[Rfam]
RNA: mir-29 microRNA precursor family
RNA sequence: CGUGACUGGGUUCUUCUGGUGAAUAGAUCUAUGUUGAGUCAUUCUAGCACCAUUUGAAUUCAGUUCUUG
Numbered sequence: 001c002g003u004g005a006c007u008g009g010g011u012u013c014u015u016c017u018g019g020u021g022a023a024u025a026g027a028u029c030u031a032u033g034u035u036g037a038g039u040c041a042u043u044c045u046a047g048c049a050c051c052a053u054u055u056g057a058a059u060u061c062a063g064u065u066c067u068u069g
Stems, first nucleotide, its partner, number of pairs: 001069002004066001005064009017052005024046004